[Rfam]
RNA sequence: CCUUUGGAGUGUUAGACCAAACGAAAGUAGCAUAUUCUUUUAGAAUUGCAAAAUCGAAUACGAUGAAUAAGGAA
Number, nucleotide and partner (000 for none) at each position: 001c072002c071003u070004u069005u000006g000007g000008a000009g061010u060011g059012u058013u057014a000015g000016a000017c000018c000019a000020a000021a000022c056023g055024a054025a000026a000027g000028u000029a000030g049031c048032a047033u000034a000035u045036u044037c000038u000039u000040u000041u000042a000043g000044a036045a035046u000047u032048g031049c030050a000051a000052a000053a000054u024055c023056g022057a013058a012059u011060a010061c009062g000063a000064u000065g000066a000067a000068u000069a004070a003071g002072g001073a000074a000
A member of the RNA family "RAGATH-18 RNA" from Clostridium polyendosporum, 74 nucleotides long. Pairs were carried over by alignment from the consensus structure, which is taken from published work. From the family's description: Actinobacteria, Firmicutes, Fusobacteria, Thermotogae (1 example). Rfam classes the family as a small RNA.